[Rfam]
RNA: Small nucleolar RNA SNORA30/SNORA37 family
RNA sequence: UUAGCACUUUCACAGGUCCUCCCCUAGGCAGUGGGGCCAGGAUUUGGUAGCUGGUGCUGAAAGAAAAUCCUGAUUGUAUCUUUGCGCUGGGAUUGUACCAGUGGCAGUUGACACUCAAUCGGACAGAG
Numbered sequence: 001u002u003a004g005c006a007c008u009u010u011c012a013c014a015g016g017u018c019c020u021c022c023c024c025u026a027g028g029c030a031g032u033g034g035g036g037c038c039a040g041g042a043u044u045u046g047g048u049a050g051c052u053g054g055u056g057c058u059g060a061a062a063g064a065a066a067a068u069c070c071u072g073a074u075u076g077u078a079u080c081u082u083u084g085c086g087c088u089g090g091g092a093u094u095g096u097a098c099c100a101g102u103g104g105c106a107g108u109u110g111a112c113a114c115u116c117a118a119u120c121g122g123a124c125a126g127a128g
Stems, first nucleotide, its partner, number of pairs: 003058006013046003017042004022036004068122002071117003075113002079110001082107004087101004